[Rfam]
RNA sequence: UGGCAUAGAGAACACCCAAGUGUGCUUUGUAGCUCCCUUGGUCUUAAAUCUGUGCUAAAUGAAUCUAUGUACUUUUUCCUCUGCGUUGGAAGAUGGCUUUUCCUUCUAAACGUAUUCAGAAGUACAGUACAAUG
Numbered sequence: 001u002g003g004c005a006u007a008g009a010g011a012a013c014a015c016c017c018a019a020g021u022g023u024g025c026u027u028u029g030u031a032g033c034u035c036c037c038u039u040g041g042u043c044u045u046a047a048a049u050c051u052g053u054g055c056u057a058a059a060u061g062a063a064u065c066u067a068u069g070u071a072c073u074u075u076u077u078c079c080u081c082u083g084c085g086u087u088g089g090a091a092g093a094u095g096g097c098u099u100u101u102c103c104u105u106c107u108a109a110a111c112g113u114a115u116u117c118a119g120a121a122g123u124a125c126a127g128u129a130c131a132a133u134g
Stems, first nucleotide, its partner, number of pairs: 003055006010049001014045001016041005022035001024033003057074002060071002062068001080120004084112004088107005093101001

The family of this 134-nucleotide RNA sequence from Xenopus laevis is "Small nucleolar RNA SNORA22". Rfam 15.1 lists 883 matches to the family in 606 species. The base pairs follow the family's consensus structure, which was predicted with RNAfold. Its family is annotated with RNA processing and nucleolus in the Gene Ontology. By type it is an H/ACA-box small nucleolar RNA. The source organism's lineage runs through Eukaryota, Craniata, Dipnotetrapodomorpha, Anura and Xenopus.